RNA: Streptomyces RNA 3202
Organism: Streptomyces sp. TRM68367
RNA sequence: CCACGUCCCGACGCACACCCCCCCCGGCGCCGGGACCUUCCAGAGUCGGGCUUCGGUGCCCCUUCCCCCCGGGGUGCCGGAGCCCGGCUCCUUU
Numbered sequence: 001c002c003a004c005g006u007c008c009c010g011a012c013g014c015a016c017a018c019c020c021c022c023c024c025c026g027g028c029g030c031c032g033g034g035a036c037c038u039u040c041c042a043g044a045g046u047c048g049g050g051c052u053u054c055g056g057u058g059c060c061c062c063u064u065c066c067c068c069c070c071g072g073g074g075u076g077c078c079g080g081a082g083c084c085c086g087g088c089u090c091c092u093u094u
Base pairs, nucleotide, nucleotide: 005036006035007034008033009032010031012029013028014027043090044089045088046087047086048085049084050083051082052081054079055078056077057076058075059074060073061072062071